A member of the RNA family "mir-156 microRNA precursor family" from Punica granatum, 85 nucleotides long. About the family: This family represents the plant microRNA (miRNA) precursor mir-156. The base pairs follow the family's consensus structure, which was predicted with PFOLD. It scores 73 bits against the family's covariance model. For this family Rfam cites "microRNAs: tiny regulators with great potential" (Ambros, Cell, 2001).
[Rfam]
RNA sequence: GCGACAGAAGAGAGUGAGCACAAAUGGUUCUUUCUUGCAUGGGACACAUGCUUGAAGCUGUCUGUGCUCACUCUCUGUCUGUCAC
Numbered sequence: 001g002c003g004a005c006a007g008a009a010g011a012g013a014g015u016g017a018g019c020a021c022a023a024a025u026g027g028u029u030c031u032u033u034c035u036u037g038c039a040u041g042g043g044a045c046a047c048a049u050g051c052u053u054g055a056a057g058c059u060g061u062c063u064g065u066g067c068u069c070a071c072u073c074u075c076u077g078u079c080u081g082u083c084a085c
Stems, first nucleotide, its partner, number of pairs: 001085001003083006010075012024061002